RNA sequence: CUUCGUUGCCCUCCUUGGGCGUUUCCUCCCUAGACUUGGCCGCCACGAAAGUGUGCGGCCUUUUUUUUGGCCAGA
Number, nucleotide and partner (000 for none) at each position: 001c000002u000003u000004c000005g000006u000007u000008g020009c019010c018011c017012u000013c000014c000015u000016u000017g011018g010019g009020c008021g000022u000023u000024u000025c000026c000027u000028c000029c000030c000031u000032a000033g000034a000035c000036u000037u000038g060039g059040c058041c057042g056043c055044c053045a052046c051047g000048a000049a000050a000051g046052u045053g044054u000055g043056c042057g041058g040059c039060c038061u000062u000063u000064u000065u000066u000067u000068u000069g000070g000071c000072c000073a000074g000075a000
A member of the RNA family "Makes More Granules Regulator RNA (mmgR)" from Allobosea sp. Root381, 75 nucleotides long. Rfam's curators write: SuhB later renamed mmgR (makes more granules regulator) was a putative non-coding RNA found multiple times in the Agrobacterium tumefaciens genome and related alpha-proteobacteria. Rfam classes the family as a small RNA. It scores 70 bits against the family's covariance model. NCBI's taxonomy places the organism under Bacteria, Pseudomonadati, Pseudomonadota, Hyphomicrobiales, Allobosea. Rfam 15.1 lists 1,791 matches to the family in 918 species. Clan: suhB sRNA clan.